[Rfam]
RNA sequence: GCUGAUCCUCCCAAUUCCUGGGACCCUAUCAGUAUUGUCUCUGCUGUCCAGUAUGUUCAGAGUAGUGCAAUAUUGCUUAUAGGGUUUCAGGGUUUGGGGCUG
Numbered sequence: 001g002c003u004g005a006u007c008c009u010c011c012c013a014a015u016u017c018c019u020g021g022g023a024c025c026c027u028a029u030c031a032g033u034a035u036u037g038u039c040u041c042u043g044c045u046g047u048c049c050a051g052u053a054u055g056u057u058c059a060g061a062g063u064a065g066u067g068c069a070a071u072a073u074u075g076c077u078u079a080u081a082g083g084g085u086u087u088c089a090g091g092g093u094u095u096g097g098g099g100c101u102g
Stems, first nucleotide, its partner, number of pairs: 020088010030075009041065005